[Rfam]
RNA sequence: GAGAUAUGAUGAGUAAACAUAUUGGUCCGUGUUUCUGAUUUAACCGUGACUGAUAAACCCAAUUUUAGCACAAUCUCUGAUCUC
Numbered sequence: 001g002a003g004a005u006a007u008g009a010u011g012a013g014u015a016a017a018c019a020u021a022u023u024g025g026u027c028c029g030u031g032u033u034u035c036u037g038a039u040u041u042a043a044c045c046g047u048g049a050c051u052g053a054u055a056a057a058c059c060c061a062a063u064u065u066u067a068g069c070a071c072a073a074u075c076u077c078u079g080a081u082c083u084c
Stems, first nucleotide, its partner, number of pairs: 001084004

Source information: This 84-nucleotide RNA sequence from Turnera subulata belongs to the Rfam family "Small nucleolar RNA SNORD18". The family's RNA type in Rfam is C/D-box small nucleolar RNA. Clan: SNORD18 clan. The match comes from Rfam's covariance-model search (44 bits). NCBI's taxonomy places the organism under Eukaryota, Viridiplantae, Euphyllophyta, rosids, Turnera.